[Rfam]
RNA sequence: GUAUGAAACUAGGGGUGCCCAUGCAAAUUGGGCUGAGAGAGAAGUGUAAUAACUUCUUAACCCUUUGGACCUGAUCUGGCUCGUACCAGCGUGGGGAAGUUAACGGCUUUACAU
Numbered sequence: 001g002u003a004u005g006a007a008a009c010u011a012g013g014g015g016u017g018c019c020c021a022u023g024c025a026a027a028u029u030g031g032g033c034u035g036a037g038a039g040a041g042a043a044g045u046g047u048a049a050u051a052a053c054u055u056c057u058u059a060a061c062c063c064u065u066u067g068g069a070c071c072u073g074a075u076c077u078g079g080c081u082c083g084u085a086c087c088a089g090c091g092u093g094g095g096g097a098a099g100u101u102a103a104c105g106g107c108u109u110u111a112c113a114u
Stems, first nucleotide, its partner, number of pairs: 007101004011064004017033005040057005070095004076089004
Dot-bracket structure: ......((((((((..(((((.......)))))......(((((........)))))...)))).....((((..((((......))))..))))..)))).............